[Rfam]
RNA sequence: UUUCUCCUCUUUCUGCCUAUCUGUUGUUCAUAAUCAACUGCGUAGUUCUGGUGAAGGAGUAAAUUAAACUGCCUCGCACCGCCGUACUCAUUUUUACCUCGAGUAUGGUGGCCGUGGAAUGGUGGUUUUUUAUGCAGUCGGGAAUGAAAGCAGCUGUAAUUUCCUUGCAUAAUGAGCCUAAAUACCU
Numbered sequence: 001u002u003u004c005u006c007c008u009c010u011u012u013c014u015g016c017c018u019a020u021c022u023g024u025u026g027u028u029c030a031u032a033a034u035c036a037a038c039u040g041c042g043u044a045g046u047u048c049u050g051g052u053g054a055a056g057g058a059g060u061a062a063a064u065u066a067a068a069c070u071g072c073c074u075c076g077c078a079c080c081g082c083c084g085u086a087c088u089c090a091u092u093u094u095u096a097c098c099u100c101g102a103g104u105a106u107g108g109u110g111g112c113c114g115u116g117g118a119a120u121g122g123u124g125g126u127u128u129u130u131u132a133u134g135c136a137g138u139c140g141g142g143a144a145u146g147a148a149a150g151c152a153g154c155u156g157u158a159a160u161u162u163c164c165u166u167g168c169a170u171a172a173u174g175a176g177c178c179u180a181a182a183u184a185c186c187u
Stems, first nucleotide, its partner, number of pairs: 001063003004059005012051002017045004023038004071123003074117004079111011124178005130172008140164006149155002

About this RNA
Rfam assigns this 187-nucleotide RNA from Schizosaccharomyces pombe to the family "small nucleolar RNA snR100". Pairs were carried over by alignment from the consensus structure, which was predicted with RNAalifold. The sequence is in the family's curated seed alignment. By type it is an H/ACA-box small nucleolar RNA. For this family Rfam cites "Identification and functional analysis of 20 Box H/ACA small nucleolar RNAs (snoRNAs) from Schizosaccharomyces pombe" (Li et al., J Biol Chem, 2005).